[Rfam]
RNA: Streptomyces RNA 5676
RNA sequence: AGAUGAGAGAAACACCUCGGCCUCGGGAAACCGCGGCCGACUCCGGGUCGGGGCUUCCCCAGCGCCGUCCGGAGCGUGCGUUCGCGCAUGCCGGAGCCGAUGGCUCCGGGACUCCUCACCGAUCGGA
Numbered sequence: 001a002g003a004u005g006a007g008a009g010a011a012a013c014a015c016c017u018c019g020g021c022c023u024c025g026g027g028a029a030a031c032c033g034c035g036g037c038c039g040a041c042u043c044c045g046g047g048u049c050g051g052g053g054c055u056u057c058c059c060c061a062g063c064g065c066c067g068u069c070c071g072g073a074g075c076g077u078g079c080g081u082u083c084g085c086g087c088a089u090g091c092c093g094g095a096g097c098c099g100a101u102g103g104c105u106c107c108g109g110g111a112c113u114c115c116u117c118a119c120c121g122a123u124c125g126g127a
Stems, first nucleotide, its partner, number of pairs: 004118004009114002017040006024033003042074001044072001046070002049067003053063002076089004091109008119126002
Dot-bracket structure: ...((((.((......((((((.(((....))).)))))).(.(.((.(((.((.......)).))).)).).).((((......)))).((((((((...))))))))...))))))((....)).